[Rfam]
RNA: Small nucleolar RNA snoR104
RNA sequence: AUGCAGCAUUCAAAAGAGAUGCCUACCCGAUACAAUCUUCCUAUAGUAAAGUUGUUACUUCCUGCUUGUGGUAUUGUUAGCAAGUCCUGCAAGUCUCAAAUGACAAGACAGUG
Numbered sequence: 001a002u003g004c005a006g007c008a009u010u011c012a013a014a015a016g017a018g019a020u021g022c023c024u025a026c027c028c029g030a031u032a033c034a035a036u037c038u039u040c041c042u043a044u045a046g047u048a049a050a051g052u053u054g055u056u057a058c059u060u061c062c063u064g065c066u067u068g069u070g071g072u073a074u075u076g077u078u079a080g081c082a083a084g085u086c087c088u089g090c091a092a093g094u095c096u097c098a099a100a101u102g103a104c105a106a107g108a109c110a111g112u113g
Stems, first nucleotide, its partner, number of pairs: 003026001005024001006022004053108001055106001064094008073085003